mir-8834 microRNA precursor family: a 109-nucleotide sequence from Nyctereutes procyonoides. Its family is annotated with RISC complex and miRNA-mediated post-transcriptional gene silencing in the Gene Ontology.

[Rfam]
RNA sequence: AGGAAGAACAACCCCAGUGGUGGCGGCCAGCUCUGGAGCCCUGGAAAGGGAGGACCUGAACAGUAACUCGGAGCUCUCAGUCUGCAGGGCCUGGAGGCUCCGGGGCGGG
Numbered sequence: 001a002g003g004a005a006g007a008a009c010a011a012c013c014c015c016a017g018u019g020g021u022g023g024c025g026g027c028c029a030g031c032u033c034u035g036g037a038g039c040c041c042u043g044g045a046a047a048g049g050g051a052g053g054a055c056c057u058g059a060a061c062a063g064u065a066a067c068u069c070g071g072a073g074c075u076c077u078c079a080g081u082c083u084g085c086a087g088g089g090c091c092u093g094g095a096g097g098c099u100c101c102g103g104g105g106c107g108g109g
Stems, first nucleotide, its partner, number of pairs: 002101003009093002012089003019082003023078001025077002029075007037068001041063003